The family of this 307-nucleotide sequence from Nelumbo nucifera is "Plant signal recognition particle RNA".
The family has 63 seed sequences and 4,988 matches in Rfam 15.1.
The match comes from Rfam's covariance-model search (235 bits).
Rfam links the family to the GO terms SRP-dependent cotranslational protein targeting to membrane, signal sequence recognition and signal recognition particle, endoplasmic reticulum targeting.
Taxonomically the source falls in Nelumbo (Eukaryota, Viridiplantae, Magnoliopsida, Proteales).
Its Rfam clan is "SRP clan".
RNA sequence: GCCGAGCUCUGUAGCGAGAGCAUGUAACCCGAGCGGGGGCAUCAAGGUGGUCGAACAUUGGAUCAAUUCCAACAAGCAGGGUCAGGCGGAGUAAUUUGCCGGUACGCCCGUUCCAAGAAGGGAGUUGAGCCAUGGGACUUGAGCGAAGGCUGGGGCCUCUUGGUUCUUAGAGCGGAGGGUACUGCGUCAGGCUGGUUUCACAGAGCAGCGACAAACCUCCCUCUCCCAUCGGUGGAAGGAUUACGAAUCGGUGCUCCCCUCAUCCAUCAUUGUCCAUCGAGUUGAGCCCAAUCGGACGACCACCUUU
Number, nucleotide and partner (000 for none) at each position: 001g040002c039003c038004g023005a000006g021007c020008u019009c018010u017011g000012u000013a000014g000015c000016g000017a010018g009019a008020g007021c006022a000023u004024g000025u000026a000027a000028c037029c036030c035031g000032a000033g000034c000035g030036g029037g028038g003039g002040c001041a000042u000043c000044a306045a305046g304047g303048u302049g301050g300051u299052c298053g297054a000055a000056c294057a000058u291059u290060g289061g287062a000063u285064c284065a283066a282067u000068u000069c000070c279071a000072a277073c000074a000075a000076g273077c272078a271079g265080g264081g263082u262083c000084a260085g259086g258087c000088g257089g256090a255091g254092u000093a000094a252095u000096u000097u000098g000099c251100c250101g249102g248103u247104a000105c245106g244107c000108c239109c238110g000111u237112u236113c235114c234115a233116a000117g230118a229119a000120g227121g226122g225123a224124g223125u000126u000127g166128a165129g164130c163131c162132a161133u000134g159135g158136g157137a000138c155139u154140u153141g000142a151143g150144c149145g000146a000147a000148g000149g144150c143151u142152g000153g140154g139155g138156c000157c136158u135159c134160u000161u132162g131163g130164u129165u128166c127167u172168u000169a000170g000171a000172g167173c000174g220175g219176a218177g217178g216179g000180u000181a000182c000183u000184g000185c210186g209187u208188c000189a000190g000191g000192c203193u202194g201195g000196u000197u000198u000199c000200a000201c194202a193203g192204a000205g000206c000207a000208g187209c186210g185211a000212c000213a000214a000215a000216c178217c177218u176219c175220c174221c000222u000223c124224u123225c122226c121227c120228a000229u118230c117231g000232g000233u115234g114235g113236a112237a111238g109239g108240a000241u000242u000243a000244c106245g105246a000247a103248u102249c101250g100251g099252u094253g000254c091255u090256c089257c088258c086259c085260u084261c000262a082263u081264c080265c079266a000267u000268c000269a000270u000271u078272g077273u076274c000275c000276a000277u072278c000279g070280a000281g000282u066283u065284g064285a063286g000287c061288c000289c060290a059291a058292u000293c000294g056295g000296a000297c053298g052299a051300c050301c049302a048303c047304c046305u045306u044307u000
Record summary: The literature on the family includes a 2002 paper in Curr Opin Struct Biol by Wild et al., "Towards the structure of the mammalian signal recognition particle".